Notes
Shown here is a 181-nucleotide RNA, a member of the family "malK-I RNA". The family's RNA type in Rfam is cis-regulatory element.
RNA sequence: UCCAACCGGCGGCGGCCACUCCACUUUCUUGGCCCCCUGCCGGAAAAACAAAGGAGGAACCAGGUCCCGCUGAGACUGGCGGUGCGGCAGUGUGGAGACCUGCCGUAAGGCGCUGCGGCUUCGCCGGGCGCGAGACCGUUCCAUGCGGAGGCAGAACGGUUACAGUCUGUAUAUUAUGGCA
Number, nucleotide and partner (000 for none) at each position: 001u000002c000003c000004a000005a000006c043007c042008g041009g040010c039011g037012g036013c000014g034015g033016c032017c031018a030019c000020u000021c000022c000023a000024c000025u000026u000027u000028c000029u000030u018031g017032g016033c015034c014035c000036c012037c011038u000039g010040c009041c008042g007043g006044a000045a000046a000047a000048a000049c000050a000051a000052a000053g000054g000055a000056g000057g000058a000059a000060c000061c000062a000063g000064g000065u000066c000067c082068c081069g080070c079071u000072g000073a168074g167075a166076c165077u164078g163079g070080c069081g068082g067083u107084g106085c105086g104087g103088c102089a101090g100091u000092g099093u098094g000095g000096a000097g000098a093099c092100c090101u089102g088103c087104c086105g085106u084107a083108a000109g000110g131111c130112g129113c128114u127115g000116c126117g125118g124119c000120u000121u000122c000123g000124c118125c117126g116127g114128g113129c112130g111131c110132g000133a000134g161135a160136c159137c158138g157139u156140u155141c154142c000143a000144u153145g152146c151147g000148g000149a000150g000151g146152c145153a144154g141155a140156a139157c138158g137159g136160u135161u134162a000163c078164a077165g076166u075167c074168u073169g000170u000171a000172u000173a000174u000175u000176a000177u000178g000179g000180c000181a000

Rfam's curators put it in the seed alignment.